Shown here is a 122-nucleotide RNA sequence from Erysipelothrix rhusiopathiae, a member of the family "TPP riboswitch aptamer (THI element)". The source organism's lineage runs through Bacteria, Bacillati, Erysipelotrichia, Erysipelotrichaceae and Erysipelothrix rhusiopathiae.
[Rfam]
RNA sequence: AAUUCGUACAAGGGGUGCUCGUAUUUCGGGCUGAGAAUAAACGGUUACGUUUUAAACUCUAAGCUUUAAGCUUUGUACCUGAUCCAGCUAAUACUGGCGGAGGGAUGUAUUAAUCGCAUACU
Numbered sequence: 001a002a003u004u005c006g007u008a009c010a011a012g013g014g015g016u017g018c019u020c021g022u023a024u025u026u027c028g029g030g031c032u033g034a035g036a037a038u039a040a041a042c043g044g045u046u047a048c049g050u051u052u053u054a055a056a057c058u059c060u061a062a063g064c065u066u067u068a069a070g071c072u073u074u075g076u077a078c079c080u081g082a083u084c085c086a087g088c089u090a091a092u093a094c095u096g097g098c099g100g101a102g103g104g105a106u107g108u109a110u111u112a113a114u115c116g117c118a119u120a121c122u
Base pairs, nucleotide, nucleotide: 006110007109008108009107010106013072014071016068017031018030019029020028021027039066040065042063078103079102080101084097085096086095087094
Dot-bracket structure: .....(((((..((.((((((.....))))).......((.(....................).)).)..)).....(((...((((......))))...)))..)))))............
The base pairs follow the family's consensus structure, which is taken from published work.